A member of the RNA family "mir-384 microRNA precursor family" from Orycteropus afer, 88 nucleotides long.
[Rfam]
RNA sequence: AGUUAAAUCAGAAAUUGUAAACAAUUCCUGGGCAAUGUGUAUGAUGUUUAUAAGUCAUUCCCAGAAAUUGUUCAUAAUACCUAUAACA
Numbered sequence: 001a002g003u004u005a006a007a008u009c010a011g012a013a014a015u016u017g018u019a020a021a022c023a024a025u026u027c028c029u030g031g032g033c034a035a036u037g038u039g040u041a042u043g044a045u046g047u048u049u050a051u052a053a054g055u056c057a058u059u060c061c062c063a064g065a066a067a068u069u070g071u072u073c074a075u076a077a078u079a080c081c082u083a084u085a086a087c088a
Base pairs, nucleotide, nucleotide: 010082011081014078015077016076017075018074020072021071022070023069024068025067026066028064029063030062031061032060040052041051042050